Source information: The family of this 80-nucleotide RNA sequence from Acipenser ruthenus is "Small nucleolar RNA SNORD83". Gene Ontology terms of the family: RNA processing and nucleolus. For this family Rfam cites "Characterisation of the U83 and U84 small nucleolar RNAs: two novel 2'-O-ribose methylation guide RNAs that lack complementarities to ribosomal RNAs" (Jady and Kiss, Nucleic Acids Res, 2000). Rfam classes the family as a C/D-box small nucleolar RNA.
[Rfam]
RNA sequence: GCCAAAUGAUGUUUCUUUAUAGAUUACAUUAGUACUUUGUGCAAUGAUGACCCACUAUCUAUCACCCAUGACUGAUGGCU
Numbered sequence: 001g002c003c004a005a006a007u008g009a010u011g012u013u014u015c016u017u018u019a020u021a022g023a024u025u026a027c028a029u030u031a032g033u034a035c036u037u038u039g040u041g042c043a044a045u046g047a048u049g050a051c052c053c054a055c056u057a058u059c060u061a062u063c064a065c066c067c068a069u070g071a072c073u074g075a076u077g078g079c080u
Base pairs, nucleotide, nucleotide: 001079002078003077004076032042033041034040035039
The match comes from Rfam's covariance-model search (70 bits). The source organism's lineage runs through Eukaryota, Eumetazoa, Chordata, Acipenserini and Acipenser.